A member of the RNA family "MIR828 microRNA precursor family" from Cucurbita maxima, 129 nucleotides long. The match comes from Rfam's covariance-model search (83 bits). For this family Rfam cites "A diverse and evolutionarily fluid set of microRNAs in Arabidopsis thaliana" (Rajagopalan et al., Genes Dev, 2006).
[Rfam]
RNA sequence: GCAAUGUUUCUUGCUCAAAUGAGUAUUCCAAACAGAGCAGCAGAUGCAAAUGGGAAUUAAUUCAUUCUUUCUUUAUAUCAUGCUACUGCUGCUUCCUUCUGCGAUGCUCAUUUCGGCAAGAAAUGUUGC
Numbered sequence: 001g002c003a004a005u006g007u008u009u010c011u012u013g014c015u016c017a018a019a020u021g022a023g024u025a026u027u028c029c030a031a032a033c034a035g036a037g038c039a040g041c042a043g044a045u046g047c048a049a050a051u052g053g054g055a056a057u058u059a060a061u062u063c064a065u066u067c068u069u070u071c072u073u074u075a076u077a078u079c080a081u082g083c084u085a086c087u088g089c090u091g092c093u094u095c096c097u098u099c100u101g102c103g104a105u106g107c108u109c110a111u112u113u114c115g116g117c118a119a120g121a122a123a124u125g126u127u128g129c
Base pairs, nucleotide, nucleotide: 004126005125006124007123008122010120011119012118013117014116015115017113018112019111020110021109022108023107024106025105026104027103029101030100